[Rfam]
RNA sequence: GCAACCUGAAGCUCGCGAACCAGAACGUCGCGGUGUUCCGCUCGCUGCUCGGCAUCUCGUGGAUGUGGUUCUUCGGCGCGGCCUUCCUGUCGCUGUUCCCGGCCUUCGCGAAGGAGGUGCUG
Numbered sequence: 001g002c003a004a005c006c007u008g009a010a011g012c013u014c015g016c017g018a019a020c021c022a023g024a025a026c027g028u029c030g031c032g033g034u035g036u037u038c039c040g041c042u043c044g045c046u047g048c049u050c051g052g053c054a055u056c057u058c059g060u061g062g063a064u065g066u067g068g069u070u071c072u073u074c075g076g077c078g079c080g081g082c083c084u085u086c087c088u089g090u091c092g093c094u095g096u097u098c099c100c101g102g103c104c105u106u107c108g109c110g111a112a113g114g115a116g117g118u119g120c121u122g
Base pairs, nucleotide, nucleotide: 010049011048012047014044015043017041022036024034026033051121052120053119054118055117057115058114060112063105065103067099068098071095074092075091076090077089078088080087081086